[Rfam]
RNA sequence: UAAUAUCACUGUUAGGCCACAGUAAAAGUGCUCCUGGUGUGGCCUUGUCAGAUUCCAAGAAAUCUAUGAAUUCUGCU
Numbered sequence: 001u002a003a004u005a006u007c008a009c010u011g012u013u014a015g016g017c018c019a020c021a022g023u024a025a026a027a028g029u030g031c032u033c034c035u036g037g038u039g040u041g042g043c044c045u046u047g048u049c050a051g052a053u054u055c056c057a058a059g060a061a062a063u064c065u066a067u068g069a070a071u072u073c074u075g076c077u
Base pairs, nucleotide, nucleotide: 014045015044016043017042018041021077022076023075024074026072027071028040029039030038050065051064052063053062054061

Mammalian CPEB3 ribozyme: a 77-nucleotide RNA from Crocodylus porosus.
The family's consensus secondary structure is taken from published work.
The match comes from Rfam's covariance-model search (36 bits).
NCBI's taxonomy places the organism under Eukaryota, Eumetazoa, Chordata, Archosauria, Crocodylus.